Overview: Rfam assigns this 86-nucleotide RNA from Desulfosporosinus acididurans to the family "c-di-GMP-I-GGC riboswitch aptamer". For this family Rfam cites "Structural and biochemical determinants of ligand binding by the c-di-GMP riboswitch " (Smith et al., Biochemistry, 2010). The source organism's lineage runs through Bacteria, Bacillota, Clostridia, Desulfitobacteriaceae and Desulfosporosinus.

RNA sequence: UAUGCAAAAGGCAAACUUAUCGAAAGAUAAGGACGCAAAGCUAUGGGUCUUAACAGAUAAACCUGAAGACCGCCAAGCCGCCGAAC
Numbered sequence: 001u002a003u004g005c006a007a008a009a010g011g012c013a014a015a016c017u018u019a020u021c022g023a024a025a026g027a028u029a030a031g032g033a034c035g036c037a038a039a040g041c042u043a044u045g046g047g048u049c050u051u052a053a054c055a056g057a058u059a060a061a062c063c064u065g066a067a068g069a070c071c072g073c074c075a076a077g078c079c080g081c082c083g084a085a086c
Stems, first nucleotide, its partner, number of pairs: 003083002011036002016031006034072001040078003044075003047070005